[Rfam]
RNA sequence: CCCUCCAGUGCCUACUGAGCUGAUAUCAGUUCUCGUUGACCCACUGGCUCAGUUCAGCAGGAACAGGAGUG
Number, nucleotide and partner (000 for none) at each position: 001c000002c000003c069004u068005c067006c066007a000008g064009u063010g000011c061012c060013u059014a000015c057016u056017g055018a054019g053020c052021u051022g050023a049024u000025a000026u047027c046028a045029g044030u043031u000032c000033u000034c000035g000036u000037u000038g000039a000040c000041c000042c000043a030044c029045u028046g027047g026048c000049u023050c022051a021052g020053u019054u018055c017056a016057g015058c000059a013060g012061g011062a000063a009064c008065a000066g006067g005068a004069g003070u000071g000
mir-24 microRNA precursor family: a 71-nucleotide sequence from Ornithorhynchus anatinus.
Rfam describes the family as follows. This family represents the microRNA (miRNA) mir-24 family. miRNAs are transcribed as ~70nt precursors (modelled here) and subsequently processed by the Dicer enzyme to give a ~22nt product. In this case the mature sequence comes from the 3' arm of the precursor. The extents of the hairpin precursors are not generally known and are estimated based on hairpin prediction. The products are thought to have regulatory roles through complementarity to mRNA. The involvement of Dicer in miRNA processing suggests a relationship with the phenomenon of RNA interference. miRNAs are numbered based on the sequence of the mature RNA. miR-24 has been identified in human and mouse.
The literature on the family includes a 2001 paper in Science by Lagos-Quintana et al., "Identification of novel genes coding for small expressed RNAs".
The base pairs follow the family's consensus structure, which was predicted with RNAalifold.
Gene Ontology terms of the family: RISC complex and miRNA-mediated post-transcriptional gene silencing.